[Rfam]
RNA sequence: CAAAUAAGUCAGCCUAAUCUAGCUUGUCGCCCAAGCUGGAGCGGAGGAACCCAUCAAGGGGCUAAUCAAGAUCCGCAACCUCGACAUUCCAGAAAUUAUCGAGGUUCUUCUUGAAGGACAUCUCUCAGUCCUCGCCCGUCAGCUAACUUCGUAGGCUUUGAGAGGAGACUGG
Numbered sequence: 001c002a003a004a005u006a007a008g009u010c011a012g013c014c015u016a017a018u019c020u021a022g023c024u025u026g027u028c029g030c031c032c033a034a035g036c037u038g039g040a041g042c043g044g045a046g047g048a049a050c051c052c053a054u055c056a057a058g059g060g061g062c063u064a065a066u067c068a069a070g071a072u073c074c075g076c077a078a079c080c081u082c083g084a085c086a087u088u089c090c091a092g093a094a095a096u097u098a099u100c101g102a103g104g105u106u107c108u109u110c111u112u113g114a115a116g117g118a119c120a121u122c123u124c125u126c127a128g129u130c131c132u133c134g135c136c137c138g139u140c141a142g143c144u145a146a147c148u149u150c151g152u153a154g155g156c157u158u159u160g161a162g163a164g165g166a167g168a169c170u171g172g
Base pairs, nucleotide, nucleotide: 011157012156013155014154018040019039020038021037022036023035024034025033041152042151043150044149045148046147051058059137060136061135067113068112069111070110116131117130118129119128

This 172-nucleotide sequence from Desertifilum tharense belongs to the Rfam family "c-di-AMP riboswitch aptamer (ydaO/yuaA leader)". Lineage of the source: Bacteria > Bacillati > Cyanophyceae > Desertifilaceae > Desertifilum tharense.